[Rfam]
The family of this 122-nucleotide sequence from Aminobacter sp. MSH1 is "Rhizobiales sRNA Atu_C8". The literature on the family includes a 2012 paper in RNA Biol by Wilms et al., "Deep sequencing uncovers numerous small RNAs on all four replicons of the plant pathogen Agrobacterium tumefaciens". Pairs were carried over by alignment from the consensus structure, which was predicted with CMfinder. The family's RNA type in Rfam is small RNA.
RNA sequence: CAUGAAUACGACACUCAUUCUCGUAGUAGGAUUGCGCAUGGGCAAGGCGGUGUAACCGCCGGGCGAAAUCCCCCAUGCGCAAAUGUGAAGGCUCCCUCGGGGGCCUUUUUUAUUGCCCGAAA
Numbered sequence: 001c002a003u004g005a006a007u008a009c010g011a012c013a014c015u016c017a018u019u020c021u022c023g024u025a026g027u028a029g030g031a032u033u034g035c036g037c038a039u040g041g042g043c044a045a046g047g048c049g050g051u052g053u054a055a056c057c058g059c060c061g062g063g064c065g066a067a068a069u070c071c072c073c074c075a076u077g078c079g080c081a082a083a084u085g086u087g088a089a090g091g092c093u094c095c096c097u098c099g100g101g102g103g104c105c106u107u108u109u110u111u112a113u114u115g116c117c118c119g120a121a122a
Base pairs, nucleotide, nucleotide: 007028009026029118030117032115033081034080035079036078037077038076039075040074041073042072046060047059048058049057050056063070087107089106090105091104092103093102094101095100